[Rfam]
The record is a 107-nucleotide RNA from Tenebrionibacter intestinalis, which matches "RprA RNA" in Rfam. Pairs were carried over by alignment from the consensus structure, which was predicted with PFOLD. Rfam classes the family as a small RNA. Translational regulation of the stationary phase sigma factor RpoS is mediated by the formation of a double-stranded RNA stem-loop structure in the upstream region of the rpoS messenger RNA, occluding the translation initiation site. The organism belongs to Tenebrionibacter, within Bacteria.

RNA sequence: UCGGUUAUAAAUCAUCUCCUUGAUUUAUAAACAUGGUAAUCCCCUGAGUGAACAACGAAUUGCUGUGUGUAGUCUUUGCCCAUCUCCCACGAUGGGCCUUUUUUUAU
Numbered sequence: 001u002c003g004g005u006u007a008u009a010a011a012u013c014a015u016c017u018c019c020u021u022g023a024u025u026u027a028u029a030a031a032c033a034u035g036g037u038a039a040u041c042c043c044c045u046g047a048g049u050g051a052a053c054a055a056c057g058a059a060u061u062g063c064u065g066u067g068u069g070u071a072g073u074c075u076u077u078g079c080c081c082a083u084c085u086c087c088c089a090c091g092a093u094g095g096g097c098c099u100u101u102u103u104u105u106a107u
Stems, first nucleotide, its partner, number of pairs: 002022003032046002035043002061069003078097007